[Rfam]
RNA sequence: AAAUUUCCAUCAAUCAGUCGCAUCAUCCCGCAGUGAUGGUGUUUAUUGACCUGCAGCGUCGGUUGAUGGAUUUUU
Numbered sequence: 001a002a003a004u005u006u007c008c009a010u011c012a013a014u015c016a017g018u019c020g021c022a023u024c025a026u027c028c029c030g031c032a033g034u035g036a037u038g039g040u041g042u043u044u045a046u047u048g049a050c051c052u053g054c055a056g057c058g059u060c061g062g063u064u065g066a067u068g069g070a071u072u073u074u075u
Stems, first nucleotide, its partner, number of pairs: 001075003006070002009067005022040006046062005
The family of this 75-nucleotide RNA sequence from Nadsonia fulvescens is "bZIP non canonical Hac1/Xbp1 intron". Rfam 15.1 lists 1,325 matches to the family in 1,320 species.